Overview:
The family of this 97-nucleotide part of an RNA from Methanohalobium evestigatum is "Archaeal large subunit ribosomal RNA". It is one of the family's seed sequences.
[Rfam]
RNA sequence: GAUACGGCAUGCAAGGAACUCCGGUAUGAAGGAAUCAGUCGCGAGGCUGUAGUACGGGUAUCGGUGCCGAUGUCGUAUCGUACGUUUCGAAAAACGG
Numbered sequence: 001g002a003u004a005c006g007g008c009a010u011g012c013a014a015g016g017a018a019c020u021c022c023g024g025u026a027u028g029a030a031g032g033a034a035u036c037a038g039u040c041g042c043g044a045g046g047c048u049g050u051a052g053u054a055c056g057g058g059u060a061u062c063g064g065u066g067c068c069g070a071u072g073u074c075g076u077a078u079c080g081u082a083c084g085u086u087u088c089g090a091a092a093a094a095c096g097g
Base pairs, nucleotide, nucleotide: 001079002078003077004076005075006074007073008072009071010070015068016067021064022063023062024061025060026059027058031055036049037048038047039046040045083096084095085094